[Rfam]
RNA sequence: GAGAGUGGUGGCUAGGGUUCCGGUGCACGUACUGCAUGGCUGGUCCGAGAGCUGCCACCGGUGGGCGGCUGUCCAUUGGAUGCACGGCGGGACAAAAGCCCGGGAGAC
Numbered sequence: 001g002a003g004a005g006u007g008g009u010g011g012c013u014a015g016g017g018u019u020c021c022g023g024u025g026c027a028c029g030u031a032c033u034g035c036a037u038g039g040c041u042g043g044u045c046c047g048a049g050a051g052c053u054g055c056c057a058c059c060g061g062u063g064g065g066c067g068g069c070u071g072u073c074c075a076u077u078g079g080a081u082g083c084a085c086g087g088c089g090g091g092a093c094a095a096a097a098g099c100c101c102g103g104g105a106g107a108c
Stems, first nucleotide, its partner, number of pairs: 007056006015046002020043002022040001023037005057081001058079007083103001085106001089101003

Rfam assigns this 108-nucleotide sequence from Devosia pacifica to the family "Guanidine-I riboswitch aptamer". Taxonomically the source falls in Devosia (Bacteria, Pseudomonadati, Hyphomicrobiales, Devosiaceae). Rfam's curators write: This family represents a conserved RNA structure found upstream of the ykkC and yxkD genes in Bacillus subtilis and related genes in other bacteria. The pairing is the family consensus, mapped onto this sequence. Its family is annotated with regulation of gene expression in the Gene Ontology.